[Rfam]
RNA sequence: CCAACGGCCCUCUUUAGGGCCACGAAUCACAUGAAUCCAAAUUGAU
Dot-bracket structure: .....((((((....)))))).........................
Source information:
The record is a 46-nucleotide RNA sequence from Caenorhabditis briggsae, which matches "Histone 3' UTR stem-loop" in Rfam. The family's RNA type in Rfam is cis-regulatory element. Rfam links the family to the GO term mRNA 3'-end processing by stem-loop binding and cleavage. About the family: The mRNAs of metazoan histone genes lack a poly-A tail. 3' end processing occurs at a site between a highly conserved stem-loop (modelled by this family) and a purine rich region around 20 nts downstream (the histone downstream element, or HDE). The stem-loop is bound by a 31 kDa stem-loop binding protein (SLBP - also termed the histone hairpin binding protein, or HBP). Together with U7 snRNA binding of the HDE, SLBP binding nucleate s the formation of the processing complex. The histone 3' UTR stem-loop is also involved in nucleocytoplasmic transport of the mRNA, and in stability regulation and translation efficiency in the cytoplasm. The family has 50 seed sequences and 44,596 matches in Rfam 15.1.